[Rfam]
RNA sequence: GUCGCCGCGAGGCGGGGUCUGAAGGAAGCCCAAUCCAAAGCUGCAGGGCGAUGAACGAAAGCCGGACAUCAGGCGUGAUGUACUCGGGACGAGCGGGCACGUGACCGCGAAGUCCUCCAUCUGCGGUUGGGGUGCAUUUUGUAAAUCCGGCGUCUAUGCAGCGAAGGUAACGAGU
Numbered sequence: 001g002u003c004g005c006c007g008c009g010a011g012g013c014g015g016g017g018u019c020u021g022a023a024g025g026a027a028g029c030c031c032a033a034u035c036c037a038a039a040g041c042u043g044c045a046g047g048g049c050g051a052u053g054a055a056c057g058a059a060a061g062c063c064g065g066a067c068a069u070c071a072g073g074c075g076u077g078a079u080g081u082a083c084u085c086g087g088g089a090c091g092a093g094c095g096g097g098c099a100c101g102u103g104a105c106c107g108c109g110a111a112g113u114c115c116u117c118c119a120u121c122u123g124c125g126g127u128u129g130g131g132g133u134g135c136a137u138u139u140u141g142u143a144a145a146u147c148c149g150g151c152g153u154c155u156a157u158g159c160a161g162c163g164a165a166g167g168u169a170a171c172g173a174g175u
Base pairs, nucleotide, nucleotide: 002015003014004013005012006011028175029174031172036167040162041161042160043159044158045157046155047154048153049152050151062150063149064148065147066146073142074141075140077138078137079136080135081134082133083132087115088114089113090112093108094107095106096105